Rfam assigns this 124-nucleotide RNA from Morus notabilis to the family "Small nucleolar RNA snoR111".
RNA sequence: GAAAAUAAUGGAGAGUCAAUAUGUCUCUUCGUUGAAAAGAACAUGGAGGUAUGGCGAAAUGGCCGAGAUAUUGUUUCAGUCGUCACUUUCUCAGAUUGACGAUUCAAUUGUUGUUCAUCUAUAU
Number, nucleotide and partner (000 for none) at each position: 001g000002a000003a000004a000005a000006u034007a033008a032009u031010g030011g000012a000013g027014a026015g025016u000017c023018a022019a000020u000021a000022u018023g017024u000025c015026u014027c013028u000029u000030c010031g009032u008033u007034g006035a000036a000037a000038a000039g000040a000041a000042c000043a000044u000045g000046g000047a000048g000049g000050u000051a000052u000053g000054g000055c000056g000057a000058a000059a000060u000061g120062g119063c000064c000065g116066a115067g114068a000069u000070a108071u107072u106073g105074u000075u000076u000077c000078a000079g103080u102081c101082g100083u099084c098085a097086c000087u095088u094089u000090c000091u000092c000093a000094g088095a087096u000097u085098g084099a083100c082101g081102a080103u079104u000105c073106a072107a071108u070109u000110g000111u000112u000113g000114u067115u066116c065117a000118u000119c062120u061121a000122u000123a000124u000
Pairs were carried over by alignment from the consensus structure, which was predicted with WAR. The family has 6 seed sequences and 533 matches in Rfam 15.1.